[Rfam]
The record is a 73-nucleotide RNA from Aotus nancymaae, which matches "mir-320 microRNA precursor family" in Rfam.
The match comes from Rfam's covariance-model search (61 bits).
The family's consensus secondary structure was predicted with RNAalifold.
Lineage of the source: Eukaryota > Tetrapoda > Simiiformes > Platyrrhini > Aotus.
RNA sequence: ACAAAGAAAGACCUUCUCUUCCUGGUUCUUCCAGAGCGGGAAAAGCUGGUUGAGAGGGCGAAAAAAAAAAAAG
Number, nucleotide and partner (000 for none) at each position: 001a000002c000003a000004a000005a000006g000007a000008a000009a000010g000011a000012c000013c000014u056015u055016c054017u053018c052019u000020u000021c049022c048023u000024g047025g046026u000027u000028c000029u042030u041031c040032c039033a000034g000035a000036g000037c000038g000039g032040g031041a030042a029043a000044a000045g000046c025047u024048g022049g021050u000051u000052g018053a017054g016055a015056g014057g000058g000059c000060g000061a000062a000063a000064a000065a000066a000067a000068a000069a000070a000071a000072a000073g000